[Rfam]
RNA sequence: ACCGGGCUUGGUAGCGCUUGCUUGUAACCGAAGUGGGGGUACUAAAGUGGGUUGGACAUUGGCUCAGUCCAUUUCGGUUGGGUCUGGUUUGCAUAAUCUGGCUUGCCCGUUCCAAGUUGAGAGUUGGUGUAUGUGGCUUGAGCGAAGGCUUGGGCUACAUGCACCCUAGACUAAGGGGCACUGCGUUAGGCUGGCUUCACAGAGCUGCGACAACCCUUGGCUCCUGACAGUGGUAGGAUAACAGGCUUGGGCUCAUCAGGCUCAAUGAGCCGUCUGGUCUGACUCAAAUGAACACCCACUUUU
Numbered sequence: 001a002c003c004g005g006g007c008u009u010g011g012u013a014g015c016g017c018u019u020g021c022u023u024g025u026a027a028c029c030g031a032a033g034u035g036g037g038g039g040u041a042c043u044a045a046a047g048u049g050g051g052u053u054g055g056a057c058a059u060u061g062g063c064u065c066a067g068u069c070c071a072u073u074u075c076g077g078u079u080g081g082g083u084c085u086g087g088u089u090u091g092c093a094u095a096a097u098c099u100g101g102c103u104u105g106c107c108c109g110u111u112c113c114a115a116g117u118u119g120a121g122a123g124u125u126g127g128u129g130u131a132u133g134u135g136g137c138u139u140g141a142g143c144g145a146a147g148g149c150u151u152g153g154g155c156u157a158c159a160u161g162c163a164c165c166c167u168a169g170a171c172u173a174a175g176g177g178g179c180a181c182u183g184c185g186u187u188a189g190g191c192u193g194g195c196u197u198c199a200c201a202g203a204g205c206u207g208c209g210a211c212a213a214c215c216c217u218u219g220g221c222u223c224c225u226g227a228c229a230g231u232g233g234u235a236g237g238a239u240a241a242c243a244g245g246c247u248u249g250g251g252c253u254c255a256u257c258a259g260g261c262u263c264a265a266u267g268a269g270c271c272g273u274c275u276g277g278u279c280u281g282a283c284u285c286a287a288a289u290g291a292a293c294a295c296c297c298a299c300u301u302u303u
Base pairs, nucleotide, nucleotide: 001040002039003038004023005022006021007020010017028037029036044302045301046300047299048298049297050296051295052294054293057290058289059287060286061285064282065281066280067279070277075272076271077270078269079268080263081262082261083260084259085258086257087256089255091252094250098249100247101246102245103244104243105242107237108236110235112233113232114231116228117227118226119225121223122222123221124220126165127164128163129162130161131160132159133158134157135156136155137154138153139152140151141150142149143148172219173218174217175216176215177214184209185208186207191202192201193200
Dot-bracket structure: (((((((..(......)..))))....((......)))))...(((((((((.(..(((((..((((..(....(((((((((((((.(.(..(...(.((((((.((.(.(((.((((.((((.((((((((((((((((((....))))))))))))))))))......((((((......(((....(((......)))....)))....)))))))))).))))..))).)))....)))))).)).)..)))))))))....)))))....).))))..))).))..)))))))))).